[Rfam]
RNA: Potassium channel RNA editing signal
RNA sequence: GUGGGGUACGGAGACAUGGCGCCAAAGACGUACGUGGGUAUGUUUGUGGGGGCGCUGUGUGCUCUGCUGGGGGUACUGACUAUUGCGCUCCCAGUCCCCGUCAUAGUCAGCAAC
Numbered sequence: 001g002u003g004g005g006g007u008a009c010g011g012a013g014a015c016a017u018g019g020c021g022c023c024a025a026a027g028a029c030g031u032a033c034g035u036g037g038g039u040a041u042g043u044u045u046g047u048g049g050g051g052g053c054g055c056u057g058u059g060u061g062c063u064c065u066g067c068u069g070g071g072g073g074u075a076c077u078g079a080c081u082a083u084u085g086c087g088c089u090c091c092c093a094g095u096c097c098c099c100g101u102c103a104u105a106g107u108c109a110g111c112a113a114c
Stems, first nucleotide, its partner, number of pairs: 001114002004111001008107002011104001013102003018097002021095002037077004049063002